[Rfam]
Nucleotides: 267
Stems, first nucleotide, its partner, number of pairs: 002014003020264005029255005035248001037246001040244006048236005055068001057066003071226004076222004081214005086208003090203004095198004100142001102140003106137004111129005117124002143147001151194007162185003169178003
Number, partner (000 for none) and nucleotide at each position: 001000a002014a003013u004012c005000u006000g007000u008000c009000a010000u011000g012004g013003a014002u015000a016000g017000u018000c019000c020264a021263g022262u023261g024260g025000g026000a027000g028000g029255u030254c031253a032252g033251c034000c035248g036000u037246u038000a039000a040244g041243u042242c043241a044240a045239u046000a047000a048236c049235c050234u051233u052232g053000c054000u055068u056000a057066g058065g059064u060000a061000a062000u063000u064059g065058c066057c067000a068055g069000c070000g071226g072225g073224a074223c075000u076222g077221g078220u079219g080000c081214c082213u083212g084211g085210u086208a087207c088206g089000a090203a091202u092201c093200c094000g095198g096197g097196g098195g099000u100142c101000g102140u103139c104138g105000u106137u107136g108135u109134a110000c111129u112128c113127g114126u115125g116000c117124g118123a119000g120000u121000a122000g123118u124117c125115c126114a127113c128112g129111a130000u131000c132000g133000c134109u135108a136107c137106a138104c139103g140102g141000c142100g143147u144000u145000a146000a147143g148000c149000a150000a151194u152193g153192g154191a155190a156189g157188u158000g159000a160000c161000c162185c163184u164183u165000g166000a167000g168000g169178g170177a171176a172000g173000c174000a175000a176171u177170u178169c179000u180000g181000c182000a183164g184163a185162g186000a187000c188157a189156u190155u191154u192153c193152c194151a195098c196097c197096c198095u199000g200093g201092g202091a203090u204000g205000g206088c207087g208086u209000c210085a211084c212083c213082a214081g215000a216000u217000u218000a219079c220078a221077c222076c223074g224073u225072c226071c227000u228000g229000u230000u231000a232052c233051a234050g235049g236048g237000a238000c239045a240044u241043u242042g243041g244040c245000a246037g247000u248035u249000u250000g251033g252032c253031u254030g255029g256000a257000c258000a259000a260024c261023u262022a263021c264020u265000u266000u267000u
The family of this 267-nucleotide RNA from Aspergillus homomorphus is "Fungal signal recognition particle RNA". For this family Rfam cites "Structural and energetic analysis of RNA recognition by a universally conserved protein from the signal recognition particle" (Batey et al., J Mol Biol, 2001). A search with the family's covariance model found it, with a score of 170 bits. Clan: SRP clan. The source organism's lineage runs through Eukaryota, Opisthokonta, Ascomycota, Pezizomycotina and Aspergillus homomorphus. The family's consensus secondary structure is taken from published work. The family has 50 seed sequences and 748 matches in Rfam 15.1. Rfam classes the family as a non-coding RNA gene. Rfam links the family to the GO terms signal recognition particle, endoplasmic reticulum targeting, SRP-dependent cotranslational protein targeting to membrane, signal sequence recognition and signal recognition particle, plasma membrane targeting.